The family of this 116-nucleotide RNA from Mucilaginibacter gracilis is "SAM riboswitch aptamer (S box leader)". Lineage of the source: Bacteria > Pseudomonadati > Sphingobacteriia > Sphingobacteriaceae > Mucilaginibacter. The family's consensus secondary structure is taken from published work. Gene Ontology term of the family: regulation of gene expression. Rfam describes the family as follows. The SAM riboswitch is found upstream of a number of genes which code for proteins involved in methionine or cysteine biosynthesis in Gram-positive bacteria.
[Rfam]
RNA sequence: UACUUAUCCAGAAAGACCGAGGGAAAGGCCCUUUGACGUCUUGGCAACCUCUACAGCGUUCCGCUGAUAAAAGGUGCUAAUUCCUCCCUGGAGUAAUGCACCGGGAAAGAUAAGUU
Numbered sequence: 001u002a003c004u005u006a007u008c009c010a011g012a013a014a015g016a017c018c019g020a021g022g023g024a025a026a027g028g029c030c031c032u033u034u035g036a037c038g039u040c041u042u043g044g045c046a047a048c049c050u051c052u053a054c055a056g057c058g059u060u061c062c063g064c065u066g067a068u069a070a071a072a073g074g075u076g077c078u079a080a081u082u083c084c085u086c087c088c089u090g091g092a093g094u095a096a097u098g099c100a101c102c103g104g105g106a107a108a109g110a111u112a113a114g115u116u
Stems, first nucleotide, its partner, number of pairs: 002115007013042005021031003026085003043078004048074002050071001052069002082108001087105005